[Rfam]
This 87-nucleotide RNA sequence from Fuerstiella marisgermanici belongs to the Rfam family "sRNA-Xcc1". The organism belongs to Fuerstiella, within Bacteria. The literature on the family includes a 2011 paper in RNA Biol by Chen et al., "sRNA-Xcc1, an integron-encoded transposon- and plasmid-transferred trans-acting sRNA, is under the positive control of the key virulence regulators HrpG and HrpX of Xanthomonas campestris pathovar campestris". The family has 74 seed sequences and 421 matches in Rfam 15.1. Pairs were carried over by alignment from the consensus structure, which was predicted with RNAalifold.
RNA sequence: GCCGGGAGGGUGGUGAAAUAUAAUACCGCUCGCGGAAAUACACCGCAGGCCGUCUUUUGGGCUUUCUUAACCUCCCGGCACCACUCC
Dot-bracket structure: (((((((((..((((.(........(((....)))...).))))..(((((........)))))......)))))))))........